[Rfam]
RNA: c-di-AMP riboswitch aptamer (ydaO/yuaA leader)
Organism: Nocardia uniformis
RNA sequence: GCGACGUUACCGCCUAAUCGACUAUCGGGUCAGUUACCGAUGUCGAGCCGGGGACCCAGAGUUCAUGGGGUGAAUCCUCGUCGGCCACAGGGUCGAUGGGGUAGGGCCGAUCUUGCCGGCCCGAACCCGUCAGCUAACUCGGUCGGUGGUCAGAGCAAGGAAGA
Numbered sequence: 001g002c003g004a005c006g007u008u009a010c011c012g013c014c015u016a017a018u019c020g021a022c023u024a025u026c027g028g029g030u031c032a033g034u035u036a037c038c039g040a041u042g043u044c045g046a047g048c049c050g051g052g053g054a055c056c057c058a059g060a061g062u063u064c065a066u067g068g069g070g071u072g073a074a075u076c077c078u079c080g081u082c083g084g085c086c087a088c089a090g091g092g093u094c095g096a097u098g099g100g101g102u103a104g105g106g107c108c109g110a111u112c113u114u115g116c117c118g119g120c121c122c123g124a125a126c127c128c129g130u131c132a133g134c135u136a137a138c139u140c141g142g143u144c145g146g147u148g149g150u151c152a153g154a155g156c157a158a159g160g161a162a163g164a
Stems, first nucleotide, its partner, number of pairs: 011148004018046005047143006057067002068128003076101009104122004
Dot-bracket structure: ..........((((...(((((...................)))))((((((....((.......))(((.....(((((((((........)))))))))..((((...........))))...))).........)))))).))))................